[Rfam]
Rfam assigns this 89-nucleotide RNA sequence from Streptomyces inhibens to the family "ZMP/ZTP riboswitch aptamer (pfl RNA motif)".
A reference for the family is Jones and Ferre-D'Amare (2015), "Recognition of the bacterial alarmone ZMP through long-distance association of two RNA subdomains", Nat Struct Mol Biol.
The family's consensus secondary structure is taken from published work.
A search with the family's covariance model found it, with a score of 61 bits.
Taxonomically the source falls in Streptomyces (Bacteria, Bacillati, Actinomycetota, Kitasatosporales).
RNA sequence: GCGCCGAGCCGUGACUGGCGCUUGGGUGGAGUACCACCGGGGAGCGGCUCGGCCGGUCAUGGUCAGUGCCGCGCGCCUGGGCGAUCCGU
Numbered sequence: 001g002c003g004c005c006g007a008g009c010c011g012u013g014a015c016u017g018g019c020g021c022u023u024g025g026g027u028g029g030a031g032u033a034c035c036a037c038c039g040g041g042g043a044g045c046g047g048c049u050c051g052g053c054c055g056g057u058c059a060u061g062g063u064c065a066g067u068g069c070c071g072c073g074c075g076c077c078u079g080g081g082c083g084a085u086c087c088g089u
Base pairs, nucleotide, nucleotide: 003053004052005051006050007049008048009047010046011045012044015041016040017077018076019075020074021073026037027036028035029034067083068082069081070080